RNA sequence: GCGGAUGGCCGGAUGACCGCGUGUGGUUCGUAGUCCCGCAAGGGAAACCGCACCAUGCGAGGAAAGUCCGGACUCCAUGAGGCAAGGGUGCCGGGUAACGCCCGGCUGGGGUAACCCAAGGGAAAGCGCCACAGAGAAGAGAACGCCUCGCAUGUCGGGGCAAUGGUGAAACGGUGGGGUAAGAGCCCACCGCAGACGUGGCAACACGGAUGGCAAGGCAAGCCCCACCCGGAGCAAUGCCGAAUAGGGGCCUCACGCGGGCAGGUUGGGCAACCAAUACCGCCGCAGGGACGCUUCAGCCCAGAGGCCCGGGUUGGCAGCUAGACCCCAGUGGUAACACUGGGGCCAGAGGAAUGGUCAUCGAAGGGAGGCAACUCCCGGAACAAAAUCCGGCUUACAGGCCAUCCGCGCAU
Numbered sequence: 001g002c003g004g005a006u007g008g009c010c011g012g013a014u015g016a017c018c019g020c021g022u023g024u025g026g027u028u029c030g031u032a033g034u035c036c037c038g039c040a041a042g043g044g045a046a047a048c049c050g051c052a053c054c055a056u057g058c059g060a061g062g063a064a065a066g067u068c069c070g071g072a073c074u075c076c077a078u079g080a081g082g083c084a085a086g087g088g089u090g091c092c093g094g095g096u097a098a099c100g101c102c103c104g105g106c107u108g109g110g111g112u113a114a115c116c117c118a119a120g121g122g123a124a125a126g127c128g129c130c131a132c133a134g135a136g137a138a139g140a141g142a143a144c145g146c147c148u149c150g151c152a153u154g155u156c157g158g159g160g161c162a163a164u165g166g167u168g169a170a171a172c173g174g175u176g177g178g179g180u181a182a183g184a185g186c187c188c189a190c191c192g193c194a195g196a197c198g199u200g201g202c203a204a205c206a207c208g209g210a211u212g213g214c215a216a217g218g219c220a221a222g223c224c225c226c227a228c229c230c231g232g233a234g235c236a237a238u239g240c241c242g243a244a245u246a247g248g249g250g251c252c253u254c255a256c257g258c259g260g261g262c263a264g265g266u267u268g269g270g271c272a273a274c275c276a277a278u279a280c281c282g283c284c285g286c287a288g289g290g291a292c293g294c295u296u297c298a299g300c301c302c303a304g305a306g307g308c309c310c311g312g313g314u315u316g317g318c319a320g321c322u323a324g325a326c327c328c329c330a331g332u333g334g335u336a337a338c339a340c341u342g343g344g345g346c347c348a349g350a351g352g353a354a355u356g357g358u359c360a361u362c363g364a365a366g367g368g369a370g371g372c373a374a375c376u377c378c379c380g381g382a383a384c385a386a387a388a389u390c391c392g393g394c395u396u397a398c399a400g401g402c403c404a405u406c407c408g409c410g411c412a413u
Base pairs, nucleotide, nucleotide: 001409002408003407004406005405006404007403008402009401010400011398012362013361014360015359016358017357018356020059021058022057023056024055025054026053027052064396065395066394068393069392070391071390072389073234074233075232076231081297082296086230087229088228089227090226091105092104093103094102095101106120107118108117109116110115121225122224126223127222128219129218130217145161146160147159148158149157150156173191174190175189176188177187178186192214193212194211197208198207199206200205238319239318240317241316248310249309250308251307252306253305289302290301292299326345327344328343329342330341331340332339333338